RNA: mir-737 microRNA precursor family
RNA sequence: GGGUUUUCUUAGGUUUUGAUUUUUAUUACACCUUCACAUGAAAAUCAAAACCUAAAGAAAAUG
Numbered sequence: 001g002g003g004u005u006u007u008c009u010u011a012g013g014u015u016u017u018g019a020u021u022u023u024u025a026u027u028a029c030a031c032c033u034u035c036a037c038a039u040g041a042a043a044a045u046c047a048a049a050a051c052c053u054a055a056a057g058a059a060a061a062u063g
Stems, first nucleotide, its partner, number of pairs: 004060004009055016